[Rfam]
RNA sequence: UGGAGUUACGAUGAGGAUACCAAGCUCCCUCUUCUGACUUACAAGUUGAAGACGGAACGCUGGCAGAAUCGAACCUAAUGCUUUUAUCGCCACCACUGAGUAG
Number, nucleotide and partner (000 for none) at each position: 001u000002g000003g000004a000005g000006u103007u102008a101009c100010g000011a000012u000013g000014a000015g000016g000017a000018u000019a000020c000021c000022a000023a000024g000025c000026u000027c000028c000029c000030u000031c000032u000033u000034c000035u000036g000037a000038c000039u000040u000041a000042c000043a000044a000045g000046u000047u000048g000049a000050a000051g000052a000053c000054g000055g000056a000057a000058c000059g000060c000061u000062g000063g000064c000065a000066g000067a000068a000069u000070c000071g000072a000073a000074c000075c000076u000077a000078a000079u000080g000081c000082u000083u000084u000085u000086a000087u000088c000089g000090c000091c000092a000093c000094c000095a000096c000097u000098g000099a000100g009101u008102a007103g006
Rfam assigns this 103-nucleotide RNA sequence from Eucalyptus grandis to the family "Small nucleolar RNA R30/Z108". For this family Rfam cites "Experimental RNomics. Identification of 140 Candidates for Small Non-Messenger RNAs in the Plant Arabidopsis thaliana" (Marker et al., Curr Biol, 2002). About the family: snoR30 is a C/D box small nucleolar RNA which acts as a methylation guide for 18S ribosomal RNA in plants. Rfam links the family to the GO terms nucleolus and RNA processing. Its Rfam clan is "SNORD100 clan". The source organism's lineage runs through Eukaryota, Viridiplantae, Tracheophyta, Spermatophyta and Eucalyptus.